[Rfam]
RNA sequence: AUACUUACCUGGCAGUGGAGACACCAUGAUCAUGAAGGUGGUUUUCCCAGGGUGAAGCUUAUCCAUUGUACUCCAGAUGUGCUAACCCCUUCGAUUUCCCCAAAUGUGGAAAACUUGACUGCAUAAUUUGUGGUAGUGGGGGACUGCAUUCGUGUUCUCCCCUG
Numbered sequence: 001a002u003a004c005u006u007a008c009c010u011g012g013c014a015g016u017g018g019a020g021a022c023a024c025c026a027u028g029a030u031c032a033u034g035a036a037g038g039u040g041g042u043u044u045u046c047c048c049a050g051g052g053u054g055a056a057g058c059u060u061a062u063c064c065a066u067u068g069u070a071c072u073c074c075a076g077a078u079g080u081g082c083u084a085a086c087c088c089c090u091u092c093g094a095u096u097u098c099c100c101c102a103a104a105u106g107u108g109g110a111a112a113a114c115u116u117g118a119c120u121g122c123a124u125a126a127u128u129u130g131u132g133g134u135a136g137u138g139g140g141g142g143a144c145u146g147c148a149u150u151c152g153u154g155u156u157c158u159c160c161c162c163u164g
Stems, first nucleotide, its partner, number of pairs: 012122004017047005023042005049090004054086001056083003060079004092117003095113001096111002099109002138163006146155003
RNA: U1 spliceosomal RNA